[Rfam]
Plastid-rpl16 group II-D1 intron: a 45-nucleotide sequence from Monotropa hypopitys. Plastid-rpl16 is a non-coding RNA (ncRNA) recognised in plastids. It was recognised in and intronic region of a ribosome rpl16 gene. Lineage of the source: Eukaryota > Embryophyta > eudicotyledons > Pentapetalae > Monotropa. Pairs were carried over by alignment from the consensus structure, which was predicted with LocARNA. Rfam links the family to the GO term Group II intron splicing. For this family Rfam cites "Retrograde signaling in plants: A critical review focusing on the GUN pathway and beyond" (Richter et al., Plant Commun, 2023).

RNA sequence: GAGACUCGAGACAGUAAAGACUAAGACAAUUGACUCAAUAAUAAA
Numbered sequence: 001g002a003g004a005c006u007c008g009a010g011a012c013a014g015u016a017a018a019g020a021c022u023a024a025g026a027c028a029a030u031u032g033a034c035u036c037a038a039u040a041a042u043a044a045a
Stems, first nucleotide, its partner, number of pairs: 006038001008036003012032004
Dot-bracket structure: .....(.(((.((((.............)))).))).).......